[Rfam]
RNA sequence: UUUUCCGAGGAGCGUUGCAGCGUCCCCAGCACGGCGGGGCGCGAGGCUCGGAAUGAUUCAUUUGCAACGACGCUCACCCACG
Numbered sequence: 001u002u003u004u005c006c007g008a009g010g011a012g013c014g015u016u017g018c019a020g021c022g023u024c025c026c027c028a029g030c031a032c033g034g035c036g037g038g039g040c041g042c043g044a045g046g047c048u049c050g051g052a053a054u055g056a057u058u059c060a061u062u063u064g065c066a067a068c069g070a071c072g073c074u075c076a077c078c079c080a081c082g
Stems, first nucleotide, its partner, number of pairs: 003053006021041006
Background:
SAH (S-adenosyl-L-homocysteine) riboswitch aptamer: an 82-nucleotide RNA from Acidovorax sp. MR-S7. The family has 52 seed sequences and 1,354 matches in Rfam 15.1. Its family is annotated with S-adenosylhomocysteine metabolic process and regulation of gene expression in the Gene Ontology. NCBI's taxonomy places the organism under Bacteria, Pseudomonadati, Betaproteobacteria, Burkholderiales, Acidovorax. Pairs were carried over by alignment from the consensus structure, which is taken from published work.